[Rfam]
RNA sequence: GUAUUUGAAGGGCAAACCGUUUGAAAAAGCGGGACGCAAAGUCACAGGUCUAAGGUUGAAAAAACUAUGAUGGCUGGAUUUCCUGG
Numbered sequence: 001g002u003a004u005u006u007g008a009a010g011g012g013c014a015a016a017c018c019g020u021u022u023g024a025a026a027a028a029g030c031g032g033g034a035c036g037c038a039a040a041g042u043c044a045c046a047g048g049u050c051u052a053a054g055g056u057u058g059a060a061a062a063a064a065c066u067a068u069g070a071u072g073g074c075u076g077g078a079u080u081u082c083c084u085g086g
Stems, first nucleotide, its partner, number of pairs: 012037002017032006040080004045076003048071003055065003

c-di-GMP-I riboswitch aptamer: an 86-nucleotide sequence from Litchfieldia stipae. A search with the family's covariance model found it, with a score of 75 bits. Pairs were carried over by alignment from the consensus structure, which is taken from published work. The literature on the family includes a 2008 paper in Science by Sudarsan et al., "Riboswitches in Eubacteria Sense the Second Messenger Cyclic Di-GMP".